[Rfam]
RNA sequence: CGCCUCUGGAAAGCAGGCGUGUUCCCGAUCGGAUGGGGAACGGCGCCUCACCGACGGUGCAAGCCCCGGCGCGGGCGAAGCUCUCAGGUGCAGAUGACAGAGGGGGA
Numbered sequence: 001c002g003c004c005u006c007u008g009g010a011a012a013g014c015a016g017g018c019g020u021g022u023u024c025c026c027g028a029u030c031g032g033a034u035g036g037g038g039a040a041c042g043g044c045g046c047c048u049c050a051c052c053g054a055c056g057g058u059g060c061a062a063g064c065c066c067c068g069g070c071g072c073g074g075g076c077g078a079a080g081c082u083c084u085c086a087g088g089u090g091c092a093g094a095u096g097a098c099a100g101a102g103g104g105g106g107a
Stems, first nucleotide, its partner, number of pairs: 001105001003103006015048006050089003053085002057083001059081001063076002
RNA: Glycine riboswitch aptamer
Organism: Thermomonospora umbrina